[Rfam]
Alphaproteobacteria transfer-messenger RNA: a 350-nucleotide RNA. Clan: tRNA clan. A search with the family's covariance model found it, with a score of 301 bits. Rfam links the family to the GO term RNA catabolic process. Pairs were carried over by alignment from the consensus structure, which is taken from published work. By type it is a non-coding RNA gene. Rfam describes the family as follows. Bacterial tmRNA, also known as 10Sa RNA or SsrA, is named for its dual tRNA and mRNA-like properties. Its role is to liberate the mRNA from a stalled ribosome.

RNA sequence: GGUCUUGUCAGAGGCAACCGUCCCCCCUACCUAUGGAGUGUCCUUCGGGACUAUGGACAUAAACGCGCUCGUAAUAAGCGGAUCGGACCCGGGGGCGGUACCCGGCGGCUCCACCAACAUCUGGUCAUUUGCCAGCGAUGGGGCCGAAACAGGAUCGACGAACGUCUAAAGGGGUUUGCUUUGUCCCGGUGAGUUACCACCGUUAUCGGUACACAUAAGCUAGUUGCAAAUGACAACCAUGCUCCGGUCGCGGUCGCAGCGUAAGCUGUGCCCAACACCGAAAACUUAAGCCCUAAGGCUUUGCAGCUUUAGGCGGGGUUCGCAGGCACCUGGCAACAGAAGCCUGCACU
Numbered sequence: 001g002g003u004c005u006u007g008u009c010a011g012a013g014g015c016a017a018c019c020g021u022c023c024c025c026c027c028u029a030c031c032u033a034u035g036g037a038g039u040g041u042c043c044u045u046c047g048g049g050a051c052u053a054u055g056g057a058c059a060u061a062a063a064c065g066c067g068c069u070c071g072u073a074a075u076a077a078g079c080g081g082a083u084c085g086g087a088c089c090c091g092g093g094g095g096c097g098g099u100a101c102c103c104g105g106c107g108g109c110u111c112c113a114c115c116a117a118c119a120u121c122u123g124g125u126c127a128u129u130u131g132c133c134a135g136c137g138a139u140g141g142g143g144c145c146g147a148a149a150c151a152g153g154a155u156c157g158a159c160g161a162a163c164g165u166c167u168a169a170a171g172g173g174g175u176u177u178g179c180u181u182u183g184u185c186c187c188g189g190u191g192a193g194u195u196a197c198c199a200c201c202g203u204u205a206u207c208g209g210u211a212c213a214c215a216u217a218a219g220c221u222a223g224u225u226g227c228a229a230a231u232g233a234c235a236a237c238c239a240u241g242c243u244c245c246g247g248u249c250g251c252g253g254u255c256g257c258a259g260c261g262u263a264a265g266c267u268g269u270g271c272c273c274a275a276c277a278c279c280g281a282a283a284a285c286u287u288a289a290g291c292c293c294u295a296a297g298g299c300u301u302u303g304c305a306g307c308u309u310u311a312g313g314c315g316g317g318g319u320u321c322g323c324a325g326g327c328a329c330c331u332g333g334c335a336a337c338a339g340a341a342g343c344c345u346g347c348a349c350u
Base pairs, nucleotide, nucleotide: 040051041050042049043048055186056185057184058183059182065179066178067175068174069173070172079164080163083161084160085159089105090104091103092102093101106146107145108144109143110142111141112140187202188201189200190199193212194211196210197209198208316331317330318329319328322347323346324345325344326343327342